[Rfam]
RNA: Xanthine riboswitch aptamer (NMT1 RNA)
Organism: Curvibacter lanceolatus
RNA sequence: GGCAAGAGUAGAAGCGUUCAGCUGCCCUGUCCGGCCGGUGUGCCGGGCCUGGGGCAGACCGGGAAUUGCUCUUGAG
Numbered sequence: 001g002g003c004a005a006g007a008g009u010a011g012a013a014g015c016g017u018u019c020a021g022c023u024g025c026c027c028u029g030u031c032c033g034g035c036c037g038g039u040g041u042g043c044c045g046g047g048c049c050u051g052g053g054g055c056a057g058a059c060c061g062g063g064a065a066u067u068g069c070u071c072u073u074g075a076g
Stems, first nucleotide, its partner, number of pairs: 005072006015061001018063002021059001022057008